[Rfam]
RNA sequence: CAACAACAGGAAGGAGGUGAUCCAGUGUCUCAUUGUCAUCAGCCGCGGUCGUCGGCGUCCCGGACCUGGAUCGUCACCUCCGGCGUCAUCGCCUGAGCGUCACGAUCUGACUGUCCGCCGGAUCGCGGUUCGGCAAUGGAAGGGCCGUCCUCCUCGGGGGGCGGCCCU
Numbered sequence: 001c002a003a004c005a006a007c008a009g010g011a012a013g014g015a016g017g018u019g020a021u022c023c024a025g026u027g028u029c030u031c032a033u034u035g036u037c038a039u040c041a042g043c044c045g046c047g048g049u050c051g052u053c054g055g056c057g058u059c060c061c062g063g064a065c066c067u068g069g070a071u072c073g074u075c076a077c078c079u080c081c082g083g084c085g086u087c088a089u090c091g092c093c094u095g096a097g098c099g100u101c102a103c104g105a106u107c108u109g110a111c112u113g114u115c116c117g118c119c120g121g122a123u124c125g126c127g128g129u130u131c132g133g134c135a136a137u138g139g140a141a142g143g144g145c146c147g148u149c150c151u152c153c154u155c156g157g158g159g160g161g162c163g164g165c166c167c168u
Stems, first nucleotide, its partner, number of pairs: 016023002031138007044063001047060002050057002064071001065069001072104003075099001079097001082093004115128004120124001141168012
The family of this 168-nucleotide RNA sequence from Methylobacterium oryzihabitans is "caulobacter sRNA CC2171".
A reference for the family is Landt et al. (2008), "Small non-coding RNAs in Caulobacter crescentus", Mol Microbiol.
Lineage of the source: Bacteria > Pseudomonadota > Alphaproteobacteria > Methylobacteriaceae > Methylobacterium.
The family's RNA type in Rfam is small RNA.
Pairs were carried over by alignment from the consensus structure, which was predicted with RNAalifold.